[Rfam]
RNA sequence: UCGACCUUUUUCUAACUGGCAGGGUCUUCUAAAAGACCCGGAGUACAAUUUUUGGAGACUUCUUCAUUUGAAGAAGCUA
Numbered sequence: 001u002c003g004a005c006c007u008u009u010u011u012c013u014a015a016c017u018g019g020c021a022g023g024g025u026c027u028u029c030u031a032a033a034a035g036a037c038c039c040g041g042a043g044u045a046c047a048a049u050u051u052u053u054g055g056a057g058a059c060u061u062c063u064u065c066a067u068u069u070g071a072a073g074a075a076g077c078u079a
Stems, first nucleotide, its partner, number of pairs: 022039003026035003057078001059076007
Dot-bracket structure: .....................(((.(((....))).))).................(.(((((((....))))))).).
SmY spliceosomal RNA: a 79-nucleotide sequence from Steinernema hermaphroditum. The literature on the family includes a 2007 paper in RNA by MacMorris et al., "A novel family of C. elegans snRNPs contains proteins associated with trans-splicing". It is annotated as a spliceosomal small nuclear RNA. The match comes from Rfam's covariance-model search (56 bits). The base pairs follow the family's consensus structure, which is taken from published work. The family has 61 seed sequences and 408 matches in Rfam 15.1.